[Rfam]
RNA sequence: UUGAGGUGCAUUGUAGUUGCAUUGCAUGUAAUUUUGUAAGUGCAGUGUCUCUUCAGUGCAACUUUA
Numbered sequence: 001u002u003g004a005g006g007u008g009c010a011u012u013g014u015a016g017u018u019g020c021a022u023u024g025c026a027u028g029u030a031a032u033u034u035u036g037u038a039a040g041u042g043c044a045g046u047g048u049c050u051c052u053u054c055a056g057u058g059c060a061a062c063u064u065u066a
Stems, first nucleotide, its partner, number of pairs: 001066001003064002006062001007060007015052002019048001021046007
A member of the RNA family "mir-33 microRNA precursor family" from Asbolus verrucosus, 66 nucleotides long.
Lineage of the source: Eukaryota > Pterygota > Neoptera > Eumetabola > Asbolus.
Rfam 15.1 lists 1,467 matches to the family in 815 species.
It scores 63 bits against the family's covariance model.
A reference for the family is Li et al. (2009), "Direct sequencing and expression analysis of a large number of miRNAs in Aedes aegypti and a multi-species survey of novel mosquito miRNAs", BMC Genomics.